[Rfam]
RNA sequence: ACGGGCACGGACGCCCGUGGUUCCACGCAGAAAUGAGUUUGAAAACUACCACAGCUAUAUAAAUAGGAGUUUUCAAACUCAUAGGUCAGUUUUUGCCAUGGACGGCAAAAACUGACCCUUG
Numbered sequence: 001a002c003g004g005g006c007a008c009g010g011a012c013g014c015c016c017g018u019g020g021u022u023c024c025a026c027g028c029a030g031a032a033a034u035g036a037g038u039u040u041g042a043a044a045a046c047u048a049c050c051a052c053a054g055c056u057a058u059a060u061a062a063a064u065a066g067g068a069g070u071u072u073u074c075a076a077a078c079u080c081a082u083a084g085g086u087c088a089g090u091u092u093u094u095g096c097c098a099u100g101g102a103c104g105g106c107a108a109a110a111a112c113u114g115a116c117c118c119u120u121g
Stems, first nucleotide, its partner, number of pairs: 001018006034081014084117014
The record is a 121-nucleotide RNA sequence from Treponema phagedenis, which matches "TD-2 RNA" in Rfam. The family has 36 seed sequences and 310 matches in Rfam 15.1. NCBI's taxonomy places the organism under Bacteria, Pseudomonadati, Spirochaetia, Treponematales, Treponema. The literature on the family includes a 2007 paper in Nucleic Acids Res by Weinberg et al., "Identification of 22 candidate structured RNAs in bacteria using the CMfinder comparative genomics pipeline".